[Rfam]
RNA sequence: UUGCCGGUGGGAUUCCGGUCCGGGUAGCUGCCAGGAGGCCCGGUAGCAGGCUGGCGGCUUCGUCUGGAAACGGGCGGGGUCGAAGCCCAGCGUCAAAGGCCUUGCAAAUAGGGGGAGCGACGAUGCGGUCCGUAGCAUGA
Numbered sequence: 001u002u003g004c005c006g007g008u009g010g011g012a013u014u015c016c017g018g019u020c021c022g023g024g025u026a027g028c029u030g031c032c033a034g035g036a037g038g039c040c041c042g043g044u045a046g047c048a049g050g051c052u053g054g055c056g057g058c059u060u061c062g063u064c065u066g067g068a069a070a071c072g073g074g075c076g077g078g079g080u081c082g083a084a085g086c087c088c089a090g091c092g093u094c095a096a097a098g099g100c101c102u103u104g105c106a107a108a109u110a111g112g113g114g115g116a117g118c119g120a121c122g123a124u125g126c127g128g129u130c131c132g133u134a135g136c137a138u139g140a
Stems, first nucleotide, its partner, number of pairs: 020043005050091005055082006064073001066071001100112003117133003
This 140-nucleotide sequence from Nonomuraea zeae belongs to the Rfam family "Group II catalytic intron D1-D4-4". Pairs were carried over by alignment from the consensus structure. The source organism's lineage runs through Bacteria, Bacillati, Actinomycetota, Actinomycetes and Nonomuraea. Group II introns are found in rRNA, tRNA and mRNA of organelles in fungi, plants and protists, and also in mRNA in bacteria.